[Rfam]
RNA sequence: CCUGCCGAAGUUUCCCUCAGGAUAGCAGAAGCUCGCAUCAGUUCGAUGAGGUAAAGCGAAUGAUUAGAGGCCUUGGGGAUGAAACAUCCUUAACCUAUUCUCAAACUUUAAAUGUGUCGGAAGCCCUUGUUGUUUGAUUUAAACGAGUGGCAUGCGAAUGAGAGUUUCUAGUGGGCCAGUUUUGGUAAGCAGAACUGGCGAUGCGGGAUGAACCGAACGUGAGGUUAAGGUGCCGGAAUACUACGCUCAUCAGACACCACAAAAGGUGUUAGUUCAUCUAGACAGCCGCACGGUGGCCAUGGAAGUCGGAAUCCGCUAAGGAGUGUGUAACAACUCAACGGCCGAAUGAACUAGCCCUGAAAAUGGAUGGCGCUCAAGCGUGUUACCCAUACCUCACCGUUGGCGGUCGUGAAAUGAUCCGUCAACGAGUAGGCAGGCGUGGAGGUCUCGUUAGGAAGCUCUGGCAGUGAUGCCGAGUGAAACGGCCUCUAGUGCAGAU
Numbered sequence: 001c002c003u004g005c006c007g008a009a010g011u012u013u014c015c016c017u018c019a020g021g022a023u024a025g026c027a028g029a030a031g032c033u034c035g036c037a038u039c040a041g042u043u044c045g046a047u048g049a050g051g052u053a054a055a056g057c058g059a060a061u062g063a064u065u066a067g068a069g070g071c072c073u074u075g076g077g078g079a080u081g082a083a084a085c086a087u088c089c090u091u092a093a094c095c096u097a098u099u100c101u102c103a104a105a106c107u108u109u110a111a112a113u114g115u116g117u118c119g120g121a122a123g124c125c126c127u128u129g130u131u132g133u134u135u136g137a138u139u140u141a142a143a144c145g146a147g148u149g150g151c152a153u154g155c156g157a158a159u160g161a162g163a164g165u166u167u168c169u170a171g172u173g174g175g176c177c178a179g180u181u182u183u184g185g186u187a188a189g190c191a192g193a194a195c196u197g198g199c200g201a202u203g204c205g206g207g208a209u210g211a212a213c214c215g216a217a218c219g220u221g222a223g224g225u226u227a228a229g230g231u232g233c234c235g236g237a238a239u240a241c242u243a244c245g246c247u248c249a250u251c252a253g254a255c256a257c258c259a260c261a262a263a264a265g266g267u268g269u270u271a272g273u274u275c276a277u278c279u280a281g282a283c284a285g286c287c288g289c290a291c292g293g294u295g296g297c298c299a300u301g302g303a304a305g306u307c308g309g310a311a312u313c314c315g316c317u318a319a320g321g322a323g324u325g326u327g328u329a330a331c332a333a334c335u336c337a338a339c340g341g342c343c344g345a346a347u348g349a350a351c352u353a354g355c356c357c358u359g360a361a362a363a364u365g366g367a368u369g370g371c372g373c374u375c376a377a378g379c380g381u382g383u384u385a386c387c388c389a390u391a392c393c394u395c396a397c398c399g400u401u402g403g404c405g406g407u408c409g410u411g412a413a414a415u416g417a418u419c420c421g422u423c424a425a426c427g428a429g430u431a432g433g434c435a436g437g438c439g440u441g442g443a444g445g446u447c448u449c450g451u452u453a454g455g456a457a458g459c460u461c462u463g464g465c466a467g468u469g470a471u472g473c474c475g476a477g478u479g480a481a482a483c484g485g486c487c488u489c490u491a492g493u494g495c496a497g498a499u
Stems, first nucleotide, its partner, number of pairs: 001437006011024001013022003027169007042121007054109001055107002061103003066098001068096003073093006080086001123151003126147006175199010204215003219397005225391001229387003238384001240383001244380003264358003268355010285342004291315003297309002316320001321336001325334002398427009438494001440491008450483002458478002464473003
Dot-bracket structure: ((((((....(.(((....))).)..(((((((........(((((((.....(((....(((..(.(((..((((((.(.....).))))))))).)..)))..)).).....))))))).(((((((((..........)))))).)))...........))))))).....((((((((((.....))))))))))....(((......)))...(((((.(...(((......(.(...(((.................(((.((((((((((.......((((..(((...((.........))...)))(...)(...((......)).)..))))...)))))))))))))...................)))..)))))...).)))))(((((((((............)))))))))....))))))(.((((((((..((......((....(((....)))...))...))))))))))..).....